[Rfam]
RNA sequence: UGAUAGCUGUGAAGCGUGAGGUUGCCGUUCCUGUUGGGAUGGGGUUUUCCGUGGAGCGAAAGUCAUGUUACUAUAAACUGGCGACAA
Numbered sequence: 001u002g003a004u005a006g007c008u009g010u011g012a013a014g015c016g017u018g019a020g021g022u023u024g025c026c027g028u029u030c031c032u033g034u035u036g037g038g039a040u041g042g043g044g045u046u047u048u049c050c051g052u053g054g055a056g057c058g059a060a061a062g063u064c065a066u067g068u069u070a071c072u073a074u075a076a077a078c079u080g081g082c083g084a085c086a087a
Stems, first nucleotide, its partner, number of pairs: 014052003018049004025042005062085003067082004

Rfam assigns this 87-nucleotide RNA sequence from Johnsonella ignava to the family "S10-Clostridia ribosomal protein leader". It is one of the family's seed sequences. On this family, see Eckert and Weinberg, BMC Microbiol 2020: "Discovery of 20 novel ribosomal leader candidates in bacteria and archaea".